[Rfam]
RNA sequence: UUGGCAGGCUGGGGGUGUCCGUGGCGGGUGGCCGUCUUGGGCUGAGAAAGACCCUUACUACCUGAUCCGGUUAAUACCGGCGGAGGGAAGCUGAAACCUUACUGG
Numbered sequence: 001u002u003g004g005c006a007g008g009c010u011g012g013g014g015g016u017g018u019c020c021g022u023g024g025c026g027g028g029u030g031g032c033c034g035u036c037u038u039g040g041g042c043u044g045a046g047a048a049a050g051a052c053c054c055u056u057a058c059u060a061c062c063u064g065a066u067c068c069g070g071u072u073a074a075u076a077c078c079g080g081c082g083g084a085g086g087g088a089a090g091c092u093g094a095a096a097c098c099u100u101a102c103u104g105g
Base pairs, nucleotide, nucleotide: 007092008091009090010089011055012054013053014052016049017042018041019040020039021038061086062085063084067080068079069078070077
This 105-nucleotide RNA sequence from Candidatus Thiodiazotropha endolucinida belongs to the Rfam family "TPP riboswitch aptamer (THI element)".
Gene Ontology term of the family: thiamine pyrophosphate binding.
Taxonomically the source falls in Candidatus Thiodiazotropha (Bacteria, Pseudomonadati, Pseudomonadota, Gammaproteobacteria).
The match comes from Rfam's covariance-model search (64 bits).